[Rfam]
RNA sequence: GUUUUUACCCUGAUAACCAAGGUAAAUAUUCAGUUCGACCUUUCGAAAGAUUGUGUUGAAAAAUAAUAAUUUUUGGAACAGCUUCUUCGGGGUAUCCGUUGAGGCAAC
Numbered sequence: 001g002u003u004u005u006u007a008c009c010c011u012g013a014u015a016a017c018c019a020a021g022g023u024a025a026a027u028a029u030u031c032a033g034u035u036c037g038a039c040c041u042u043u044c045g046a047a048a049g050a051u052u053g054u055g056u057u058g059a060a061a062a063a064u065a066a067u068a069a070u071u072u073u074u075g076g077a078a079c080a081g082c083u084u085c086u087u088c089g090g091g092g093u094a095u096c097c098g099u100u101g102a103g104g105c106a107a108c
Stems, first nucleotide, its partner, number of pairs: 007034002013027002016023002036058004040053001043050002083106001085104006091097002
Description:
Shown here is a 108-nucleotide sequence from Caenorhabditis nigoni, a member of the family "SL2 RNA". The family's consensus secondary structure is taken from published work. Rfam's curators write: This family represents SL2 RNA. SL2 RNA is involved in trans splicing in lower eukaryotes. Trans-splicing is a form of RNA processing. The acquisition of a spliced leader from a SL RNA is a intra-molecular reaction which precisely joins exons derived from separately transcribed RNAs. Approximately 25% of C. elegans genes are organised into polycistronic transcription units and the presence of SL2 on an mRNA is an indication the the gene is in an operon. A reference for the family is Evans and Blumenthal (2000), "trans splicing of polycistronic Caenorhabditis elegans pre-mRNAs: analysis of the SL2 RNA", Mol Cell Biol.